[Rfam]
RNA sequence: GGAUCGAUGAUGACUUCAAAAAUAGAUGUCAUUGGAAACUGAACAAAAUGAGUAACAGAAUCACUUCUGUGAGCUGAGGUCC
Number, nucleotide and partner (000 for none) at each position: 001g082002g081003a080004u079005c078006g000007a000008u000009g000010a000011u000012g000013a000014c000015u000016u000017c000018a000019a000020a000021a000022a000023u000024a000025g000026a000027u000028g000029u051030c050031a000032u046033u045034g044035g000036a000037a000038a000039c000040u000041g000042a000043a000044c034045a033046a032047a000048a000049u000050g030051a029052g000053u000054a000055a000056c000057a000058g000059a000060a000061u000062c000063a000064c000065u000066u000067c000068u000069g000070u000071g000072a000073g000074c000075u000076g000077a000078g005079g004080u003081c002082c001